[Rfam]
Nucleotides: 178
Stems, first nucleotide, its partner, number of pairs: 006173006016086009031071008090119006097112004120146008129137002148163006
Number, partner (000 for none) and nucleotide at each position: 001000c002000g003000c004000a005000u006173a007172a008171a009170u010169a011168g012000a013000g014000g015000u016086g017085c018084a019083g020082a021081u022080a023079a024078u025000a026000a027000g028000g029000u030000a031071g032070c033069a034068u035067u036066a037065g038064g039000a040000u041000g042000u043000u044000a045000a046000g047000g048000a049000a050000a051000g052000g053000a054000a055000c056000u057000u058000c059000c060000g061000a062000a063000g064038c065037c066036u067035a068034a069033u070032g071031u072000g073000a074000a075000g076000g077000g078024g079023u080022u081021g082020u083019c084018u085017g086016c087000c088000g089000a090119a091118a092117g093116g094115a095114u096000u097112u098111a099110u100109c101000g102000g103000u104000u105000c106000c107000u108000a109100g110099a111098u112097a113000u114095a115094u116093c117092c118091u119090u120146g121145g122144u123143g124142a125141u126140g127139g128000a129137g130136c131000a132000c133000a134000a135000c136130g137129c138000c139127c140126u141125a142124u143123c144122a145121c146120u147000g148163u149162c150161a151160u152159g153158g154000u155000u156000u157000g158153c159152c160151a161150u162149g163148a164000a165000g166000c167000g168011c169010u170009a171008u172007u173006u174000a175000u176000g177000c178000a

Shown here is a 178-nucleotide RNA from Caloramator mitchellensis, a member of the family "Lysine riboswitch aptamer". Rfam describes the family as follows. Riboswitches are metabolite binding domains within certain messenger RNAs that serve as precision sensors for their corresponding targets. Pairs were carried over by alignment from the consensus structure, which is taken from published work.